A member of the RNA family "FGF-1 internal ribosome entry site (IRES)" from Capra hircus, 174 nucleotides long.
Rfam's curators write: This family represents the FGF-1 internal ribosome entry site (IRES). The FGF-1 IRES is present in the 5' UTR of the mRNA and allows cap-independent translation.
Rfam 15.1 lists 127 matches to the family in 125 species.
A reference for the family is Martineau et al. (2004), "Internal Ribosome Entry Site Structural Motifs Conserved among Mammalian Fibroblast Growth Factor 1 Alternatively Spliced mRNAs", Mol Cell Biol.
Lineage of the source: Eukaryota > Eumetazoa > Deuterostomia > Chordata > Capra.
Rfam links the family to the GO term ribosome binding.
RNA sequence: GGCCCCUACGGGAAUAAGGGCAUCGCCUCCUUUGGUGAAGGCCACUCCCUUCAGAUGGAGGAUGGGAACUCCUUUCUUCCUGCAGAGGCCUGCCUGCUGCAGUCCUGCUAGGACAGUGUGGACACCGUAGGCUGCCACAGCUGCUCGCACCCCAGAAAGAAAGCACCCCAGAGC
Numbered sequence: 001g002g003c004c005c006c007u008a009c010g011g012g013a014a015u016a017a018g019g020g021c022a023u024c025g026c027c028u029c030c031u032u033u034g035g036u037g038a039a040g041g042c043c044a045c046u047c048c049c050u051u052c053a054g055a056u057g058g059a060g061g062a063u064g065g066g067a068a069c070u071c072c073u074u075u076c077u078u079c080c081u082g083c084a085g086a087g088g089c090c091u092g093c094c095u096g097c098u099g100c101a102g103u104c105c106u107g108c109u110a111g112g113a114c115a116g117u118g119u120g121g122a123c124a125c126c127g128u129a130g131g132c133u134g135c136c137a138c139a140g141c142u143g144c145u146c147g148c149a150c151c152c153c154a155g156a157a158a159g160a161a162a163g164c165a166c167c168c169c170a171g172a173g174c
Stems, first nucleotide, its partner, number of pairs: 002174002005171001010169003015160001017050004026041003030037001051156002058079001060076003064073003085150001087145003094140003099135001105120001